The family of this 149-nucleotide RNA sequence from Molossus molossus is "U12 minor spliceosomal RNA". It is annotated as a spliceosomal small nuclear RNA.
RNA sequence: AUGCCUAAAACUUAUGAGUAAGGAAAAUAACAAUUCGGGUGAAACCUGAAUCCUCACUGCUGAGGGGAGACAAGUUUUUGAGUGGGUAAAGGUUGCCCAUAAGGUGACCCGUCUAAUUUGCAGGAUGCCUGGGAGCUGUGAUCUGCCUG
Dot-bracket structure: ...(((.(..........).))).........(((((((.....))))))).(((.(.......).))).............(((((..(((((((...(.(((((.((.((.......)).)).))))).).....))))))))))))
The family has 62 seed sequences and 2,106 matches in Rfam 15.1.